[Rfam]
RNA sequence: AGCAGCCCUCGGCGGCCCGGGUGGGGCGGGCGAUUGUGCUCGUCCCGGGGCCGCGUGAGGCACACACG
Numbered sequence: 001a002g003c004a005g006c007c008c009u010c011g012g013c014g015g016c017c018c019g020g021g022u023g024g025g026g027c028g029g030g031c032g033a034u035u036g037u038g039c040u041c042g043u044c045c046c047g048g049g050g051c052c053g054c055g056u057g058a059g060g061c062a063c064a065c066a067c068g
Stems, first nucleotide, its partner, number of pairs: 002067001007060005012054007020046002025044008